Background
Shown here is a 119-nucleotide RNA from Carnobacterium divergens, a member of the family "PyrR binding site". NCBI's taxonomy places the organism under Bacteria, Lactobacillales, Carnobacteriaceae, Carnobacterium, Carnobacterium divergens.
RNA sequence: CUUUCCUUUAACAAUAGUCCUGUGAGGCUAAGAAGGAGCAUAAGUAAAACUAGGAAUAGUUUUACACCUCAAAGAUAACAUUGUGCCCUCUUACUCUAACUAGGUAAGAGGUUUUUUUU
Numbered sequence: 001c002u003u004u005c006c007u008u009u010a011a012c013a014a015u016a017g018u019c020c021u022g023u024g025a026g027g028c029u030a031a032g033a034a035g036g037a038g039c040a041u042a043a044g045u046a047a048a049a050c051u052a053g054g055a056a057u058a059g060u061u062u063u064a065c066a067c068c069u070c071a072a073a074g075a076u077a078a079c080a081u082u083g084u085g086c087c088c089u090c091u092u093a094c095u096c097u098a099a100c101u102a103g104g105u106a107a108g109a110g111g112u113u114u115u116u117u118u119u
Base pairs, nucleotide, nucleotide: 003038004037005036006035007034008033009032015030016029017028018027019026044065045064046063047062048061049060050059051058052057083115085113087111088110089109090108091107092106093105094104095103